[Rfam]
Overview
The record is a 159-nucleotide sequence from Mycetocola miduiensis, which matches "FMN riboswitch aptamer (RFN element)" in Rfam. Pairs were carried over by alignment from the consensus structure, which is taken from published work. From the family's description: The RFN element is a highly conserved domain that is found frequently in the 5'-untranslated regions of prokaryotic mRNAs that encode for flavin mononucleotide (FMN) biosynthesis and transport proteins. Rfam links the family to the GO term FMN binding.
RNA sequence: AACGUGCUCCGGGGUCGGUGAGAGUCCGAACCGGCGGUGAUAGUCCGCGAGUUCCACACAGCAAUGUGCGGAAUUGAACUGGUGAAAUUCCGGUACCGACGGUUAUGGGUCAGGUUGCGAAAGCGGCAGGGCUCGAGUCCGGAUGGGAGGCAGCACGCG
Numbered sequence: 001a002a003c004g005u006g007c008u009c010c011g012g013g014g015u016c017g018g019u020g021a022g023a024g025u026c027c028g029a030a031c032c033g034g035c036g037g038u039g040a041u042a043g044u045c046c047g048c049g050a051g052u053u054c055c056a057c058a059c060a061g062c063a064a065u066g067u068g069c070g071g072a073a074u075u076g077a078a079c080u081g082g083u084g085a086a087a088u089u090c091c092g093g094u095a096c097c098g099a100c101g102g103u104u105a106u107g108g109g110u111c112a113g114g115u116u117g118c119g120a121a122a123g124c125g126g127c128a129g130g131g132c133u134c135g136a137g138u139c140c141g142g143a144u145g146g147g148a149g150g151c152a153g154c155a156c157g158c159g
Stems, first nucleotide, its partner, number of pairs: 003157006009150002016028003032098002034048004043096002051074003078094005100141003